[Rfam]
RNA sequence: UUUUCAAUUUUCCUCGGUAGUUUACUGCCGAAAUUUUCCUCGGCAGUUAACUGCCGAGGGGCAU
Number, nucleotide and partner (000 for none) at each position: 001u000002u000003u000004u000005c000006a000007a000008u000009u000010u000011u060012c059013c000014u057015c056016g055017g054018u053019a052020g051021u050022u049023u000024a047025c046026u045027g044028c043029c000030g000031a000032a000033a000034u000035u000036u000037u000038c000039c000040u000041c000042g000043g028044c027045a026046g025047u024048u000049a022050a021051c020052u019053g018054c017055c016056g015057a014058g000059g012060g011061g000062c000063a000064u000
Record summary:
MIR2629 microRNA precursor family: a 64-nucleotide RNA from Medicago truncatula. The organism belongs to Medicago, within Eukaryota.